[Rfam]
RNA: mir-156 microRNA precursor family
Organism: Musa balbisiana
RNA sequence: GUGACAGAAGAGAGUGAGCACCCAUGGUGCUUCUGUGCAUGGUGCAUGGGGGAGUCUAUGCGUGCUCACUGCUCUCUCUGUCAU
Numbered sequence: 001g002u003g004a005c006a007g008a009a010g011a012g013a014g015u016g017a018g019c020a021c022c023c024a025u026g027g028u029g030c031u032u033c034u035g036u037g038c039a040u041g042g043u044g045c046a047u048g049g050g051g052g053a054g055u056c057u058a059u060g061c062g063u064g065c066u067c068a069c070u071g072c073u074c075u076c077u078c079u080g081u082c083a084u
Stems, first nucleotide, its partner, number of pairs: 001084008010074003013070009023060003